Shown here is a 68-nucleotide RNA from Streptomyces fulvorobeus, a member of the family "ASdes TB sRNA".
Rfam 15.1 lists 1,192 matches to the family in 825 species.
It is annotated as a small RNA.
On this family, see Arnvig and Young, Mol Microbiol 2009: "Identification of small RNAs in Mycobacterium tuberculosis".

Nucleotides: 068
Stems, first nucleotide, its partner, number of pairs: 005062002008059002011030001013028001016026003035056004040052004
Number, partner (000 for none) and nucleotide at each position: 001000a002000g003000g004000g005062c006061g007000a008059c009058a010000g011030g012000a013028u014000c015000a016026a017025c018024c019000g020000c021000g022000c023000g024018g025017g026016u027000g028013a029000c030011c031000a032000u033000g034000a035056g036055g037054u038053a039000g040052u041051c042050g043049c044000g045000a046000a047000u048000g049043g050042c051041g052040a053038u054037a055036c056035u057000g058009u059008g060000g061006c062005g063000g064000c065000c066000u067000u068000c